[Rfam]
RNA: Plastid-ccsA-ndhD-1 3UTR RNA
RNA sequence: GAGUUUUUGAGAACCGUUUGAAUAAGGAAUGAUUCAAACGGUUCUCAAAAA
Numbered sequence: 001g002a003g004u005u006u007u008u009g010a011g012a013a014c015c016g017u018u019u020g021a022a023u024a025a026g027g028a029a030u031g032a033u034u035c036a037a038a039c040g041g042u043u044c045u046c047a048a049a050a051a
Stems, first nucleotide, its partner, number of pairs: 007048017025030001